[Rfam]
The record is a 145-nucleotide RNA from Affinibrenneria salicis, which matches "Yersinia sRNA 155(RyfD)" in Rfam. A search with the family's covariance model found it, with a score of 106 bits. Rfam describes the family as follows. The sRNA was identified by and is confirmed to have a stable secondary structure by using genome-wide structure probing at different temperatures. The function is unknown. The base pairs follow the family's consensus structure. It is annotated as a small RNA.
RNA sequence: UAAGGCGGUCCAUGUCGUGUAACAUUUUACUUCCACUAUAACUGGCAAAAUAACCUUGAAUUUUUUGGGGGAUGACCUCAUUUAAUCUCCAGUAGCAAUUUUGAACAGUAUAUAUGGGAGGAGUUAUGCGUCUGGAUCGUCUUAC
Numbered sequence: 001u002a003a004g005g006c007g008g009u010c011c012a013u014g015u016c017g018u019g020u021a022a023c024a025u026u027u028u029a030c031u032u033c034c035a036c037u038a039u040a041a042c043u044g045g046c047a048a049a050a051u052a053a054c055c056u057u058g059a060a061u062u063u064u065u066u067g068g069g070g071g072a073u074g075a076c077c078u079c080a081u082u083u084a085a086u087c088u089c090c091a092g093u094a095g096c097a098a099u100u101u102u103g104a105a106c107a108g109u110a111u112a113u114a115u116g117g118g119a120g121g122a123g124u125u126a127u128g129c130g131u132c133u134g135g136a137u138c139g140u141c142u143u144a145c
Base pairs, nucleotide, nucleotide: 002143003142004141005140006139007138008137009136010135011134012133014132016130017129018128019127021125022124023123025044027041028040029039031038054070055069056068057067058066059065071082072081073080074079086121087120088119089118090117092115093114094113